[Rfam]
RNA sequence: ACCUGAGUUUGACCCUGAGGCACUCAUACCGCCAGCUUGUUUAGAAUGCUAGCCGCAUGAGUGCCUCAUGCAGCGGUAUCGCCGGUAUGAGUGUUUCAGGGUCAAGCUUCGGU
Numbered sequence: 001a002c003c004u005g006a007g008u009u010u011g012a013c014c015c016u017g018a019g020g021c022a023c024u025c026a027u028a029c030c031g032c033c034a035g036c037u038u039g040u041u042u043a044g045a046a047u048g049c050u051a052g053c054c055g056c057a058u059g060a061g062u063g064c065c066u067c068a069u070g071c072a073g074c075g076g077u078a079u080c081g082c083c084g085g086u087a088u089g090a091g092u093g094u095u096u097c098a099g100g101g102u103c104a105a106g107c108u109u110c111g112g113u
Stems, first nucleotide, its partner, number of pairs: 005109027033081001035079001046058004
MIR6201 microRNA precursor family: a 113-nucleotide sequence from Triticum aestivum.
Rfam links the family to the GO terms RISC complex and miRNA-mediated post-transcriptional gene silencing.
The organism belongs to Triticum, within Eukaryota.
Rfam 15.1 lists 8 matches to the family in 6 species.